[Rfam]
This 46-nucleotide RNA sequence from Paenibacillus sp. GSMTC-2017 belongs to the Rfam family "PreQ1 (pre queuosine) riboswitch aptamer".
RNA sequence: GCAGUCGCGGUUCGUAACCAUCCCGCGUUAACAAAACUAAGGAGGC
Numbered sequence: 001g002c003a004g005u006c007g008c009g010g011u012u013c014g015u016a017a018c019c020a021u022c023c024c025g026c027g028u029u030a031a032c033a034a035a036a037c038u039a040a041g042g043a044g045g046c
Stems, first nucleotide, its partner, number of pairs: 006027005015039002
From the family's description: This family is a bacterial riboswitch that binds to the metabolite preQ1, an intermediate in the biosynthesis of the modified nucleoside queuosine from GTP. One example of this riboswitch is located in the leader of the Bacillus subtilis ykvJKLM (queCDEF) operon which encodes four genes necessary for queuosine production. PreQ1 binding to the riboswitch aptamer is thought to induce premature transcription termination within the leader to down-regulate expression of these genes.